This 67-nucleotide sequence from Vidua chalybeata belongs to the Rfam family "mir-8/mir-141/mir-200 microRNA precursor family". For this family Rfam cites "New microRNAs from mouse and human" (Lagos-Quintana et al., RNA, 2003). The organism belongs to Vidua, within Eukaryota. Its Rfam clan is "mir-8 microRNA precursor clan". Pairs were carried over by alignment from the consensus structure, which was predicted with RNAalifold. The family has 164 seed sequences and 2,669 matches in Rfam 15.1.

RNA sequence: CUCGCCAUCUUACUGGCAGCAUUGGAUGAUCUGUGCCGUUCUAAUACUGCCUGGUAAUGAUGGAGAA
Numbered sequence: 001c002u003c004g005c006c007a008u009c010u011u012a013c014u015g016g017c018a019g020c021a022u023u024g025g026a027u028g029a030u031c032u033g034u035g036c037c038g039u040u041c042u043a044a045u046a047c048u049g050c051c052u053g054g055u056a057a058u059g060a061u062g063g064a065g066a067a
Stems, first nucleotide, its partner, number of pairs: 002066002005063005010057005015051005021045006